[Rfam]
RNA sequence: AGCUUUUACGAGGUAUCAGCACUUUUCUUUCAUUAGGGGCAAGGAGUGAAGAAAGUACCAAACAGCAGCAGACUUUUAAACUUUAAAUAGACAGGUCUGAGUGCCUGAACUUGCUUUUUCAUUUUACUUCAUCCUCCAAGGAGUUCAAUCACUUGGCGUGCCUCCUUCUUUUAAGAGAAAGAGUAAGUUAAAAAA
Numbered sequence: 001a002g003c004u005u006u007u008a009c010g011a012g013g014u015a016u017c018a019g020c021a022c023u024u025u026u027c028u029u030u031c032a033u034u035a036g037g038g039g040c041a042a043g044g045a046g047u048g049a050a051g052a053a054a055g056u057a058c059c060a061a062a063c064a065g066c067a068g069c070a071g072a073c074u075u076u077u078a079a080a081c082u083u084u085a086a087a088u089a090g091a092c093a094g095g096u097c098u099g100a101g102u103g104c105c106u107g108a109a110c111u112u113g114c115u116u117u118u119u120c121a122u123u124u125u126a127c128u129u130c131a132u133c134c135u136c137c138a139a140g141g142a143g144u145u146c147a148a149u150c151a152c153u154u155g156g157c158g159u160g161c162c163u164c165c166u167u168c169u170u171u172u173a174a175g176a177g178a179a180a181g182a183g184u185a186a187g188u189u190a191a192a193a194a195a
Stems, first nucleotide, its partner, number of pairs: 002020003007015003029143003033139002036136004041129003048123002051120001053119003070098006099114001101112001103110001153191005159185001162181002164177001165175003